The record is a 123-nucleotide sequence from Sinocyclocheilus anshuiensis, which matches "Small nucleolar RNA SNORA26" in Rfam.
The literature on the family includes a 2001 paper in EMBO J by Huttenhofer et al., "RNomics: an experimental approach that identifies 201 candidates for novel, small, non-messenger RNAs in mouse".
Its Rfam clan is "SNORA27 clan".
The base pairs follow the family's consensus structure, which was predicted with RNAalifold.
Lineage of the source: Eukaryota > Chordata > Cyprinoidei > Cyprininae > Sinocyclocheilus.
Rfam 15.1 lists 1,943 matches to the family in 640 species.

RNA sequence: UUGCCCACUGGAGGCUGUCGGUGUUUCUAGUGGUCAUAUCAGGGGGGUAGAGUGAGCUACUCUUGCUAAAACCUGGGUCAGAGGUCACUUCUCUGUGCCUGGAUCCUGUCGCAAGACACAUGC
Numbered sequence: 001u002u003g004c005c006c007a008c009u010g011g012a013g014g015c016u017g018u019c020g021g022u023g024u025u026u027c028u029a030g031u032g033g034u035c036a037u038a039u040c041a042g043g044g045g046g047g048u049a050g051a052g053u054g055a056g057c058u059a060c061u062c063u064u065g066c067u068a069a070a071a072c073c074u075g076g077g078u079c080a081g082a083g084g085u086c087a088c089u090u091c092u093c094u095g096u097g098c099c100u101g102g103a104u105c106c107u108g109u110c111g112c113a114a115g116a117c118a119c120a121u122g123c
Stems, first nucleotide, its partner, number of pairs: 002049005008043002016036002019030001062115005073102006079095001081093003

Annotation:
About the family: The snoRNA HBI-6 belong to the H/ACA family of snoRNAs, guiding the pseudouridylation of position U4522 if the 28S rRNA. HBI-6 is the human orthologue of mouse MBI-6 snoRNA.